Description:
The record is a 74-nucleotide RNA sequence from Myotis myotis, which matches "mir-9193 microRNA precursor family" in Rfam. The organism belongs to Myotis, within Eukaryota.

RNA sequence: CUCAAAAGGGGGGAAUCCCUCAGCCCGGAUUGUGAGAGGGCAUAGGCCAGGCUGAAGGACGCCACCGGUUCAUG
Numbered sequence: 001c002u003c004a005a006a007a008g009g010g011g012g013g014a015a016u017c018c019c020u021c022a023g024c025c026c027g028g029a030u031u032g033u034g035a036g037a038g039g040g041c042a043u044a045g046g047c048c049a050g051g052c053u054g055a056a057g058g059a060c061g062c063c064a065c066c067g068g069u070u071c072a073u074g
Base pairs, nucleotide, nucleotide: 006069009066010065012063013062016059017058018057020055021054022053023052024051025050027048028047030045031044032043033042034041